[Rfam]
The record is a 74-nucleotide RNA sequence from Galdieria sulphuraria, which matches "tRNA" in Rfam. It is annotated as a transfer RNA. Rfam links the family to the GO term triplet codon-amino acid adaptor activity. Pairs were carried over by alignment from the consensus structure, which is taken from published work.

RNA sequence: CGGGAUGUAGCGUAGCUUGGUAGCGCGUCUGCUUUGGGAGCAGAAUGUCGCAGGUUCAAAUCCUGCCAUCCCGA
Numbered sequence: 001c002g003g004g005a006u007g008u009a010g011c012g013u014a015g016c017u018u019g020g021u022a023g024c025g026c027g028u029c030u031g032c033u034u035u036g037g038g039a040g041c042a043g044a045a046u047g048u049c050g051c052a053g054g055u056u057c058a059a060a061u062c063c064u065g066c067c068a069u070c071c072c073g074a
Base pairs, nucleotide, nucleotide: 001073002072003071004070005069006068007067010026011025012024013023028044029043030042031041032040050066051065052064053063054062